[Rfam]
RNA sequence: UGCUCAUCGAGAGGGACUGAGGGAACGGCCCGCAGAAGUCCCGGCAACCGACCGACAAUCUCCUCCCAUUACGGGUGGUGUCGGGACAUGGUGCUAAAUCCGGCCUGGGGUGAAAGUCGCCCCAGGGAAGAUGAGGA
Numbered sequence: 001u002g003c004u005c006a007u008c009g010a011g012a013g014g015g016a017c018u019g020a021g022g023g024a025a026c027g028g029c030c031c032g033c034a035g036a037a038g039u040c041c042c043g044g045c046a047a048c049c050g051a052c053c054g055a056c057a058a059u060c061u062c063c064u065c066c067c068a069u070u071a072c073g074g075g076u077g078g079u080g081u082c083g084g085g086a087c088a089u090g091g092u093g094c095u096a097a098a099u100c101c102g103g104c105c106u107g108g109g110g111u112g113a114a115a116g117u118c119g120c121c122c123c124a125g126g127g128a129a130g131a132u133g134a135g136g137a
Stems, first nucleotide, its partner, number of pairs: 001137001003135006013042005021031003026102003043095004048091002050087001052085002099129001104126009
RNA: SAM riboswitch aptamer (S box leader)
Organism: Nocardioides baekrokdamisoli